[Rfam]
RNA: Small nucleolar RNA SNORD89
RNA sequence: ACUGAGGAAUGAUGACAAUAAAAGGCCGAAUUGCAGCGUGUCCACCAGCAGUUUGCUCUCUGUGGGUGCACGAUGACAAAACUUCCCGAAGCGAACCAUUGGUCUGACCUCGU
Numbered sequence: 001a002c003u004g005a006g007g008a009a010u011g012a013u014g015a016c017a018a019u020a021a022a023a024g025g026c027c028g029a030a031u032u033g034c035a036g037c038g039u040g041u042c043c044a045c046c047a048g049c050a051g052u053u054u055g056c057u058c059u060c061u062g063u064g065g066g067u068g069c070a071c072g073a074u075g076a077c078a079a080a081a082c083u084u085c086c087c088g089a090a091g092c093g094a095a096c097c098a099u100u101g102g103u104c105u106g107a108c109c110u111c112g113u
Base pairs, nucleotide, nucleotide: 003112004111005110006109007108014104015103016102025034026033035100036099038097041094042093043091046088048086051071052070054068055067056066057065058064072085073084075082